[Rfam]
RNA sequence: UUAUCAGCAAAUUUCACUUUUUAGAUUCAUUAAAUAACUAAUGUAUCUGGUCUAUAUAUAUAGACUAGAUACAUUAGUUAUUUAAUGAAUCUAAAAAGUGAAAUUUGCUGAUAA
Numbered sequence: 001u002u003a004u005c006a007g008c009a010a011a012u013u014u015c016a017c018u019u020u021u022u023a024g025a026u027u028c029a030u031u032a033a034a035u036a037a038c039u040a041a042u043g044u045a046u047c048u049g050g051u052c053u054a055u056a057u058a059u060a061u062a063g064a065c066u067a068g069a070u071a072c073a074u075u076a077g078u079u080a081u082u083u084a085a086u087g088a089a090u091c092u093a094a095a096a097a098g099u100g101a102a103a104u105u106u107g108c109u110g111a112u113a114a
Stems, first nucleotide, its partner, number of pairs: 002113011014101011026089018048067004
RNA: MIR2593 microRNA precursor family